[Rfam]
RNA sequence: UCCCUGCUGAAAAAAACCAGCAUAGACCAGCACCAAAACACCAGGUGUUUUGGUGCUGGUCUAUGCUGGUUUUUUUCAGCAGGGA
Dot-bracket structure: ..(((((.(((((((((((((((((.(((((((((...............))))))))).))))))))))))))))).)))))..

mir-4524 microRNA precursor family: an 85-nucleotide RNA from Sparus aurata. Its family is annotated with miRNA-mediated post-transcriptional gene silencing and RISC complex in the Gene Ontology. The family's consensus secondary structure was predicted with RNAalifold. The source organism's lineage runs through Eukaryota, Vertebrata, Osteoglossocephalai, Neoteleostei and Sparus.